[Rfam]
Shown here is a 77-nucleotide RNA from Streptomyces qinzhouensis, a member of the family "nrdJ RNA". The organism belongs to Streptomyces, within Bacteria. The base pairs follow the family's consensus structure, which is taken from published work.
RNA sequence: ACCGACCGUGAGCGCUCGGCGCGCACGGUAUCCAAGACAGACAGUGCCACGGGAAGAUCUGGGCACUUCAGGGCGUU
Numbered sequence: 001a002c003c004g005a006c007c008g009u010g011a012g013c014g015c016u017c018g019g020c021g022c023g024c025a026c027g028g029u030a031u032c033c034a035a036g037a038c039a040g041a042c043a044g045u046g047c048c049a050c051g052g053g054a055a056g057a058u059c060u061g062g063g064c065a066c067u068u069c070a071g072g073g074c075g076u077u
Stems, first nucleotide, its partner, number of pairs: 004032002006028005012022004044066005051059001